RNA sequence: ACCCACGACGUCUAAAGGCUUUUAAAGAACCAAGGGAAAUAACCCCACCAAACCCAACCCCACCCCCGCCCGAAGUCCCGUCACUCGCGCGGGUGACAAAUGGCAACUCAGCUGGAUUUGGGACGGGUUGGCUGGCAUAUGCUCGCCGCGACAACCACAGACAUGAGACGGCCCCCGGCGAGACGACAAUCUCGACCGAGGGCCUGACCAACGAGGAAGAAGCAACCUUCCCG
Numbered sequence: 001a002c003c004c005a006c007g008a009c010g011u012c013u014a015a016a017g018g019c020u021u022u023u024a025a026a027g028a029a030c031c032a033a034g035g036g037a038a039a040u041a042a043c044c045c046c047a048c049c050a051a052a053c054c055c056a057a058c059c060c061c062a063c064c065c066c067c068g069c070c071c072g073a074a075g076u077c078c079c080g081u082c083a084c085u086c087g088c089g090c091g092g093g094u095g096a097c098a099a100a101u102g103g104c105a106a107c108u109c110a111g112c113u114g115g116a117u118u119u120g121g122g123a124c125g126g127g128u129u130g131g132c133u134g135g136c137a138u139a140u141g142c143u144c145g146c147c148g149c150g151a152c153a154a155c156c157a158c159a160g161a162c163a164u165g166a167g168a169c170g171g172c173c174c175c176c177g178g179c180g181a182g183a184c185g186a187c188a189a190u191c192u193c194g195a196c197c198g199a200g201g202g203c204c205u206g207a208c209c210a211a212c213g214a215g216g217a218a219g220a221a222g223c224a225a226c227c228u229u230c231c232c233g
Base pairs, nucleotide, nucleotide: 006068007067010065081096082095083094084093085092086091111147113145114144115143170204171203172202173201174200176198177197178196180193181192182191183190215231216230217229218228219227